[Rfam]
RNA: Small nucleolar RNA Z102/R77
Nucleotides: 085
Stems, first nucleotide, its partner, number of pairs: 002084004041056004
Number, partner (000 for none) and nucleotide at each position: 001000a002084g003083a004082u005081g006000a007000u008000a009000u010000g011000a012000u013000g014000a015000u016000c017000a018000a019000a020000u021000g022000g023000u024000u025000c026000c027000c028000u029000a030000u031000u032000g033000g034000u035000u036000u037000c038000a039000u040000u041056g042055g043054c044053c045000g046000c047000c048000g049000u050000g051000a052000u053044g054043g055042c056041u057000c058000a059000a060000a061000c062000u063000a064000u065000a066000u067000u068000a069000g070000c071000u072000c073000u074000a075000u076000c077000u078000g079000a080000u081005c082004g083003u084002c085000u